The record is a 136-nucleotide RNA sequence from Myotis lucifugus, which matches "Small Cajal body specific RNA 8" in Rfam. Pairs were carried over by alignment from the consensus structure, which is taken from published work. A reference for the family is Darzacq et al. (2002), "Cajal body-specific small nuclear RNAs: a novel class of 2'-O-methylation and pseudouridylation guide RNAs", EMBO J. Rfam describes the family as follows. scaRNAs are a specific class of small nuclear RNAs which localise to the Cajal bodies and guide the modification of RNA polymerase II transcribed spliceosomal RNAs U1, U2, U4, U5 and U12. U92 belong to the H/ACA box class of guide RNAs as it has the predicted hairpin-hinge-hairpin-tail structure, conserved H/ACA-box motifs and is found associated with GAR1. It is annotated as a small Cajal body RNA. Rfam links the family to the GO terms Cajal body, nucleolus and RNA processing.

RNA sequence: UAGGAGGCUGAUACACAAAUUGGGCUAAGUACUGCUCUAAUUGUCACCAUACCUCCCUAGAAUAAACUGCCUUUUGACGACCGGGACAAAUUGAGUGAAAUCGUAACGGACAAAAAAAAAAAGGAGGCAGCCUAGC
Numbered sequence: 001u002a003g004g005a006g007g008c009u010g011a012u013a014c015a016c017a018a019a020u021u022g023g024g025c026u027a028a029g030u031a032c033u034g035c036u037c038u039a040a041u042u043g044u045c046a047c048c049a050u051a052c053c054u055c056c057c058u059a060g061a062a063u064a065a066a067c068u069g070c071c072u073u074u075u076g077a078c079g080a081c082c083g084g085g086a087c088a089a090a091u092u093g094a095g096u097g098a099a100a101u102c103g104u105a106a107c108g109g110a111c112a113a114a115a116a117a118a119a120a121a122a123g124g125a126g127g128c129a130g131c132c133u134a135g136c
Base pairs, nucleotide, nucleotide: 003056004055005054006053007052015044016043017042018041022037023036024035025034067130068129069128070127071126072125073124081109082108083107086104087103089101